[Rfam]
RNA sequence: GUGAGUAGGAGCAAAGAGGGGUGAGAAGCCCCUCCGCCGAAAGGGAAAAGGGUUCCCUGGCAAUGACCAUCAGCCAGGGGUGAGUCGGUCCUAAGGCCGGCGGUAACUCCGCUCGGCCGAAAGGGAAAGGGGUUAAUAUUCCCCUACCGCCCGGGUAGGCGCGGCAACGCCAAGCCCUACUCCCGACGCCUGGGGCUAGGCCGACCGCGGAUUUCCCGCGGCCAACCGGGAUAGGGCCGGGGAGUGCCAUUAUGGCGAGAACCGGCCUAAACCCGGGACGGGGCCCCCGUAUGGGGGCUUCGGCCGAGGCCCUGGGCCCAUGAAAAGGGAGUAGGGAACGAUCCCGGGCGACCGUACCGAGAACCGUGACAGGUUCCCUGGGUGAGCAGCCUAAGGCGGU
Numbered sequence: 001g002u003g004a005g006u007a008g009g010a011g012c013a014a015a016g017a018g019g020g021g022u023g024a025g026a027a028g029c030c031c032c033u034c035c036g037c038c039g040a041a042a043g044g045g046a047a048a049a050g051g052g053u054u055c056c057c058u059g060g061c062a063a064u065g066a067c068c069a070u071c072a073g074c075c076a077g078g079g080g081u082g083a084g085u086c087g088g089u090c091c092u093a094a095g096g097c098c099g100g101c102g103g104u105a106a107c108u109c110c111g112c113u114c115g116g117c118c119g120a121a122a123g124g125g126a127a128a129g130g131g132g133u134u135a136a137u138a139u140u141c142c143c144c145u146a147c148c149g150c151c152c153g154g155g156u157a158g159g160c161g162c163g164g165c166a167a168c169g170c171c172a173a174g175c176c177c178u179a180c181u182c183c184c185g186a187c188g189c190c191u192g193g194g195g196c197u198a199g200g201c202c203g204a205c206c207g208c209g210g211a212u213u214u215c216c217c218g219c220g221g222c223c224a225a226c227c228g229g230g231a232u233a234g235g236g237c238c239g240g241g242g243a244g245u246g247c248c249a250u251u252a253u254g255g256c257g258a259g260a261a262c263c264g265g266c267c268u269a270a271a272c273c274c275g276g277g278a279c280g281g282g283g284c285c286c287c288c289g290u291a292u293g294g295g296g297g298c299u300u301c302g303g304c305c306g307a308g309g310c311c312c313u314g315g316g317c318c319c320a321u322g323a324a325a326a327g328g329g330a331g332u333a334g335g336g337a338a339c340g341a342u343c344c345c346g347g348g349c350g351a352c353c354g355u356a357c358c359g360a361g362a363a364c365c366g367u368g369a370c371a372g373g374u375u376c377c378c379u380g381g382g383u384g385a386g387c388a389g390c391c392u393a394a395g396g397c398g399g400u
Stems, first nucleotide, its partner, number of pairs: 016034006035398004043378004050358002055079006064072002086354003090124002095118006101111003128145005148350008182329003188317009199305005205221005226276004236266005246256003288293001364373002379393004

Shown here is a 400-nucleotide part of an RNA from Nanoarchaeum equitans, a member of the family "Archaeal large subunit ribosomal RNA". The sequence is in the family's curated seed alignment. A reference for the family is Yusupov et al. (2001), "Crystal structure of the ribosome at 5.5 A resolution", Science.